[Rfam]
RNA sequence: CUCACAGGAUCGGGAGAACCGGCUUUGCCGGUGCCGAAGGAGCAACCGCCCCGGAAACUCUCAGGCCAACGGGACCGGUCCGACAAG
Numbered sequence: 001c002u003c004a005c006a007g008g009a010u011c012g013g014g015a016g017a018a019c020c021g022g023c024u025u026u027g028c029c030g031g032u033g034c035c036g037a038a039g040g041a042g043c044a045a046c047c048g049c050c051c052c053g054g055a056a057a058c059u060c061u062c063a064g065g066c067c068a069a070c071g072g073g074a075c076c077g078g079u080c081c082g083a084c085a086a087g
Stems, first nucleotide, its partner, number of pairs: 007081007019031004033066003036062002040060003046054002
RNA: Glycine riboswitch aptamer